The family of this 232-nucleotide part of an RNA from Herbinix luporum is "Bacterial large subunit ribosomal RNA".
Pairs were carried over by alignment from the consensus structure, which is taken from published work.

RNA sequence: GAGUUACUAUUGCAGGCGAGGUUAAGGCCAAAAAGGCUGGAGCCGAAGGGAAACCGAGUGUUAAUAGCACGAAAUAGUCAGUAAUAGUAGACCCGAAACCGGGUGAUCUACCCAUGUCCAGGUUGAAGCCGCCGUAAAAGGCGGUGGAGGACCGAACACACAUCCGUUGAAAAGGGUGGUGAUGAGGUGUGGGUAGGGGUGAAAUUCCAAUCGAACCCGGAGAUAGCUGGUU
Numbered sequence: 001g002a003g004u005u006a007c008u009a010u011u012g013c014a015g016g017c018g019a020g021g022u023u024a025a026g027g028c029c030a031a032a033a034a035g036g037c038u039g040g041a042g043c044c045g046a047a048g049g050g051a052a053a054c055c056g057a058g059u060g061u062u063a064a065u066a067g068c069a070c071g072a073a074a075u076a077g078u079c080a081g082u083a084a085u086a087g088u089a090g091a092c093c094c095g096a097a098a099c100c101g102g103g104u105g106a107u108c109u110a111c112c113c114a115u116g117u118c119c120a121g122g123u124u125g126a127a128g129c130c131g132c133c134g135u136a137a138a139a140g141g142c143g144g145u146g147g148a149g150g151a152c153c154g155a156a157c158a159c160a161c162a163u164c165c166g167u168u169g170a171a172a173a174g175g176g177u178g179g180u181g182a183u184g185a186g187g188u189g190u191g192g193g194u195a196g197g198g199g200u201g202a203a204a205u206u207c208c209a210a211u212c213g214a215a216c217c218c219g220g221a222g223a224u225a226g227c228u229g230g231u232u
Stems, first nucleotide, its partner, number of pairs: 005089009015079003020044004026038003048055002058070004092230002095227001099220006108196011119184001121153004128145006157181003161178005198208002